Small nucleolar RNA SNORD25: a 72-nucleotide RNA from Mus spicilegus. The base pairs follow the family's consensus structure, which was predicted with PFOLD. On this family, see Tycowski et al., Nature 1996: "A mammalian gene with introns instead of exons generating stable RNA products". By type it is a C/D-box small nucleolar RNA. It scores 42 bits against the family's covariance model.
RNA sequence: ACCCCCUAUGAUGAGGACCUUUUCACAGACCUGUACUGAUAUCUCUGUGAGGAUAAGUAACUCUGAGGAGGC
Numbered sequence: 001a002c003c004c005c006c007u008a009u010g011a012u013g014a015g016g017a018c019c020u021u022u023u024c025a026c027a028g029a030c031c032u033g034u035a036c037u038g039a040u041a042u043c044u045c046u047g048u049g050a051g052g053a054u055a056a057g058u059a060a061c062u063c064u065g066a067g068g069a070g071g072c
Base pairs, nucleotide, nucleotide: 002071003070005068006067

Notes: The family is grouped with related families in Rfam's "SNORD25 clan".